[Rfam]
RNA: Group II catalytic intron D1-D4-1
Organism: Candidatus Symbiobacter mobilis
RNA sequence: CGCGACUUGCAGCAAUGCAGGCCGUGAUGGUGCAGAAGUCAGCAGAGGCCAUAGUAGGUGCUCAGGAGUCGGAACAUCGAAGGGC
Number, nucleotide and partner (000 for none) at each position: 001c026002g025003c000004g023005a000006c021007u020008u019009g018010c017011a016012g000013c000014a000015a000016u011017g010018c009019a008020g007021g006022c000023c004024g000025u002026g001027a000028u000029g000030g000031u000032g000033c000034a000035g000036a000037a000038g000039u046040c045041a000042g000043c000044a000045g040046a039047g000048g085049c084050c083051a000052u000053a000054g000055u000056a000057g078058g077059u076060g075061c000062u073063c000064a000065g000066g000067a000068g000069u000070c000071g000072g000073a062074a000075c060076a059077u058078c057079g000080a000081a000082g000083g050084g049085c048